[Rfam]
A member of the RNA family "skipping-rope RNA" from Streptococcus himalayensis, 80 nucleotides long.
NCBI's taxonomy places the organism under Bacteria, Bacillati, Bacilli, Streptococcaceae, Streptococcus.
Rfam classes the family as a small RNA.
RNA sequence: AAUAAUUGAGGGCAGAAAGGUUCCUGCCACACCUAGCAAUAGGUAUCUGAGAUGUGGGGUACACCGACCCACCGGUUAUU
Numbered sequence: 001a002a003u004a005a006u007u008g009a010g011g012g013c014a015g016a017a018a019g020g021u022u023c024c025u026g027c028c029a030c031a032c033c034u035a036g037c038a039a040u041a042g043g044u045a046u047c048u049g050a051g052a053u054g055u056g057g058g059g060u061a062c063a064c065c066g067a068c069c070c071a072c073c074g075g076u077u078a079u080u
Stems, first nucleotide, its partner, number of pairs: 001080008011028005019065003030049001031044004054072005